[Rfam]
RNA sequence: AAGAUAAGCUGUCCUAUCGCUUUGGGUUUUACCCAAAGAGGAAAGUCCGGGCAGUACAGGGCGCCGUACUUCCUAACGGGAAGGCAACCUGCGGGUGACGGCAGGUUGACAGCAAGUGCCACAGAAAAUAACCGCCUGGCAUACUUUUUUGAAUGGCAGGUAAGGGUGAAAAGGUGGGGUAAGAGCCCACCGCCUGAGUGGUGACACGCAGGGCCAGGUAAACCUUACGGACUGAAAGACCAAAUAGGUGCCAGGAUAGAAGCGGCCCGUUUCGGCUCUGAAUUUAUUCAGGGCGUUGGCACGGGUAGGUCGUUGGAGAUUGCGGGCGACUGCAAUCCUAGAUAAAUGAUAGGAAUUUAACUUUGGUUAAAAACAGAACCCGGCUUACAGGCUUAUUUUAUUU
Numbered sequence: 001a002a003g004a005u006a007a008g009c010u011g012u013c014c015u016a017u018c019g020c021u022u023u024g025g026g027u028u029u030u031a032c033c034c035a036a037a038g039a040g041g042a043a044a045g046u047c048c049g050g051g052c053a054g055u056a057c058a059g060g061g062c063g064c065c066g067u068a069c070u071u072c073c074u075a076a077c078g079g080g081a082a083g084g085c086a087a088c089c090u091g092c093g094g095g096u097g098a099c100g101g102c103a104g105g106u107u108g109a110c111a112g113c114a115a116g117u118g119c120c121a122c123a124g125a126a127a128a129u130a131a132c133c134g135c136c137u138g139g140c141a142u143a144c145u146u147u148u149u150u151g152a153a154u155g156g157c158a159g160g161u162a163a164g165g166g167u168g169a170a171a172a173g174g175u176g177g178g179g180u181a182a183g184a185g186c187c188c189a190c191c192g193c194c195u196g197a198g199u200g201g202u203g204a205c206a207c208g209c210a211g212g213g214c215c216a217g218g219u220a221a222a223c224c225u226u227a228c229g230g231a232c233u234g235a236a237a238g239a240c241c242a243a244a245u246a247g248g249u250g251c252c253a254g255g256a257u258a259g260a261a262g263c264g265g266c267c268c269g270u271u272u273c274g275g276c277u278c279u280g281a282a283u284u285u286a287u288u289c290a291g292g293g294c295g296u297u298g299g300c301a302c303g304g305g306u307a308g309g310u311c312g313u314u315g316g317a318g319a320u321u322g323c324g325g326g327c328g329a330c331u332g333c334a335a336u337c338c339u340a341g342a343u344a345a346a347u348g349a350u351a352g353g354a355a356u357u358u359a360a361c362u363u364u365g366g367u368u369a370a371a372a373a374c375a376g377a378a379c380c381c382g383g384c385u386u387a388c389a390g391g392c393u394u395a396u397u398u399u400a401u402u403u
Stems, first nucleotide, its partner, number of pairs: 001399010011388001012354007020038008043386003047383005052234004060289002064230005069083005084110001085108008111225002116223002118219003132165002134161005140155003173191006192214001193212004198207003238311004248302006283293003318337008
RNA: Bacterial RNase P class A
Organism: Arundinibacter roseus